Shown here is a 433-nucleotide sequence from Kockovaella imperatae, a member of the family "RNase MRP".
The base pairs follow the family's consensus structure, which is taken from published work.
The match comes from Rfam's covariance-model search (66 bits).
[Rfam]
RNA sequence: UCUCAAGCUCACAAGAAUCGUCGUCGCAGCUCACGCACAGGUCGACGAGUGGAUUCUGUCCAUCUCGCUCGUACCAUCUUCUCGCUGUGGGAAAAGUCCCCGGAGCCGCGAUGCUUUUCAGCUCGAGUCGCCGUCGGAUGCAAGUCACUCGACGAUCCCUCAAAAUUGGAAAGCGACCUCGCCCAAGAUCGAGGUGCUGAGGGAGUCCGUCGAGAUUGAUAGCACCGACCGGCUGUUGCCGACUCGAAGCUGAGCUCGCCAAGGGGCCGCUUUAUUCACCUGGCAGUCUUAGGCGAAGAUAUGAGCCAAGUCCAGUGACGAAAGUGGCUCCUUGCCGUUCUGCUCAUAGCCAUAGUUAUACGAUUUGCCCGAUAUGAUCCACCACUUUGGUGGAUUGAGGGUAACACGAUGGGGCUUACUCUGUGGUUUGGAG
Dot-bracket structure: .(((((..(((((..((((((..(((((((..............(((((((..............)))))))...........)))))))...[[[.[[[[.........................................................................................................................................................................(((.((...((((........(((..........)))....)))).)).))).....................................)))))).((((............................))))........]]]]]]]....))))).))).))
Numbered sequence: 001u002c003u004c005a006a007g008c009u010c011a012c013a014a015g016a017a018u019c020g021u022c023g024u025c026g027c028a029g030c031u032c033a034c035g036c037a038c039a040g041g042u043c044g045a046c047g048a049g050u051g052g053a054u055u056c057u058g059u060c061c062a063u064c065u066c067g068c069u070c071g072u073a074c075c076a077u078c079u080u081c082u083c084g085c086u087g088u089g090g091g092a093a094a095a096g097u098c099c100c101c102g103g104a105g106c107c108g109c110g111a112u113g114c115u116u117u118u119c120a121g122c123u124c125g126a127g128u129c130g131c132c133g134u135c136g137g138a139u140g141c142a143a144g145u146c147a148c149u150c151g152a153c154g155a156u157c158c159c160u161c162a163a164a165a166u167u168g169g170a171a172a173g174c175g176a177c178c179u180c181g182c183c184c185a186a187g188a189u190c191g192a193g194g195u196g197c198u199g200a201g202g203g204a205g206u207c208c209g210u211c212g213a214g215a216u217u218g219a220u221a222g223c224a225c226c227g228a229c230c231g232g233c234u235g236u237u238g239c240c241g242a243c244u245c246g247a248a249g250c251u252g253a254g255c256u257c258g259c260c261a262a263g264g265g266g267c268c269g270c271u272u273u274a275u276u277c278a279c280c281u282g283g284c285a286g287u288c289u290u291a292g293g294c295g296a297a298g299a300u301a302u303g304a305g306c307c308a309a310g311u312c313c314a315g316u317g318a319c320g321a322a323a324g325u326g327g328c329u330c331c332u333u334g335c336c337g338u339u340c341u342g343c344u345c346a347u348a349g350c351c352a353u354a355g356u357u358a359u360a361c362g363a364u365u366u367g368c369c370c371g372a373u374a375u376g377a378u379c380c381a382c383c384a385c386u387u388u389g390g391u392g393g394a395u396u397g398a399g400g401g402u403a404a405c406a407c408g409a410u411g412g413g414g415c416u417u418a419c420u421c422u423g424u425g426g427u428u429u430g431g432a433g
Stems, first nucleotide, its partner, number of pairs: 002433002004430003009426005016365006024090007045072007094417003098414004271322003275318002280315004292307003367402004